[Rfam]
RNA: tRNA
RNA sequence: GGUUCCAUGGUCUAACGGUUAUGACUGCGGAUUCUGAUUCCGCCAGCGAGGGUUCGACUCCCUCUGGAACCU
Numbered sequence: 001g002g003u004u005c006c007a008u009g010g011u012c013u014a015a016c017g018g019u020u021a022u023g024a025c026u027g028c029g030g031a032u033u034c035u036g037a038u039u040c041c042g043c044c045a046g047c048g049a050g051g052g053u054u055c056g057a058c059u060c061c062c063u064c065u066g067g068a069a070c071c072u
Base pairs, nucleotide, nucleotide: 001071002070003069004068005067006066007065010025011024012023027043028042029041030040031039048064049063050062051061052060